[Rfam]
RNA sequence: GGAUGUGAGGGUGAUCUGGCUGCGACAUCUGUCCCCCCAUUGGUCGCCAAGGUUGAUUCAGCUGAUCUGGCUGGCUAGGCGGGUAUCCCCUUCCUCCCUCAAUGCUCCAUGUACAUCCCUCCCAAAGCUGUGCACUCAGUCCAAGACAACCUUCUCCGAUGGAGGCAUAUUGUUCAUUGGUCAAGGGUAUACAGUAGUUGUGCUCCCCUGCUAGAACCUCCAAACAAGCUCAAGGUCCAUUUUCAGGAGAACAUAGGGUAGUCAAGCUUCCAAGACUGCAGACACAUACAAGUCAGGCACUGCAUGGGGCAAUCUGACAUUGUUU
Numbered sequence: 001g002g003a004u005g006u007g008a009g010g011g012u013g014a015u016c017u018g019g020c021u022g023c024g025a026c027a028u029c030u031g032u033c034c035c036c037c038c039a040u041u042g043g044u045c046g047c048c049a050a051g052g053u054u055g056a057u058u059c060a061g062c063u064g065a066u067c068u069g070g071c072u073g074g075c076u077a078g079g080c081g082g083g084u085a086u087c088c089c090c091u092u093c094c095u096c097c098c099u100c101a102a103u104g105c106u107c108c109a110u111g112u113a114c115a116u117c118c119c120u121c122c123c124a125a126a127g128c129u130g131u132g133c134a135c136u137c138a139g140u141c142c143a144a145g146a147c148a149a150c151c152u153u154c155u156c157c158g159a160u161g162g163a164g165g166c167a168u169a170u171u172g173u174u175c176a177u178u179g180g181u182c183a184a185g186g187g188u189a190u191a192c193a194g195u196a197g198u199u200g201u202g203c204u205c206c207c208c209u210g211c212u213a214g215a216a217c218c219u220c221c222a223a224a225c226a227a228g229c230u231c232a233a234g235g236u237c238c239a240u241u242u243u244c245a246g247g248a249g250a251a252c253a254u255a256g257g258g259u260a261g262u263c264a265a266g267c268u269u270c271c272a273a274g275a276c277u278g279c280a281g282a283c284a285c286a287u288a289c290a291a292g293u294c295a296g297g298c299a300c301u302g303c304a305u306g307g308g309g310c311a312a313u314c315u316g317a318c319a320u321u322g323u324u325u
Stems, first nucleotide, its partner, number of pairs: 001108003006101006013093002018090002024087002027084007035074002037070003042067004046062002118165004122139001125136001127135001140159002144155003197267003203261002206258005218249004226242003290325003296318001298316001299313001301311003

A member of the RNA family "7SK RNA" from Chloroceryle aenea, 325 nucleotides long. A search with the family's covariance model found it, with a score of 267 bits. It is annotated as a non-coding RNA gene. A reference for the family is Blencowe (2002), "Transcription: surprising role for an elusive small nuclear RNA", Curr Biol. About the family: 7SK was discovered as an abundant small nuclear RNA in the mid-70s but a possible function has only recently been suggested.